[Rfam]
RNA sequence: GAAGGUUUUGUGGACUUCGGUGUCGCCCUGCGGGAAAGGCUUCCAGCCGCCCCAGGCUGCGUUGGCUGAAGACCGUCGUGAUGAGCGUGGAGGAGAUGGCAUUCAAGGGGUAUCAGGU
Numbered sequence: 001g002a003a004g005g006u007u008u009u010g011u012g013g014a015c016u017u018c019g020g021u022g023u024c025g026c027c028c029u030g031c032g033g034g035a036a037a038g039g040c041u042u043c044c045a046g047c048c049g050c051c052c053c054a055g056g057c058u059g060c061g062u063u064g065g066c067u068g069a070a071g072a073c074c075g076u077c078g079u080g081a082u083g084a085g086c087g088u089g090g091a092g093g094a095g096a097u098g099g100c101a102u103u104c105a106a107g108g109g110g111u112a113u114c115a116g117g118u
Base pairs, nucleotide, nucleotide: 001018002017003016004015019043020042022040023039024038028034029033048117050093051092053090055088056082059079060078061077063075064074065073098114099113101111102110103109